[Rfam]
The record is an 83-nucleotide sequence, which matches "Twister_sister_ribozyme" in Rfam. Rfam's curators put it in the seed alignment.
RNA sequence: AUGACCCGCAAGGCCGACGGCAUCCGCCGCCGCUGGUGCAAGCCCAGCGCCCCGCACAACGGGGCGGCGCUCAUGGGUCCACC
Numbered sequence: 001a002u003g004a005c006c007c008g009c010a011a012g013g014c015c016g017a018c019g020g021c022a023u024c025c026g027c028c029g030c031c032g033c034u035g036g037u038g039c040a041a042g043c044c045c046a047g048c049g050c051c052c053c054g055c056a057c058a059a060c061g062g063g064g065c066g067g068c069g070c071u072c073a074u075g076g077g078u079c080c081a082c083c
Base pairs, nucleotide, nucleotide: 004078005077006076007075013068014067015066018029019028020027032048033047034046035045049065050064051063052062053061054060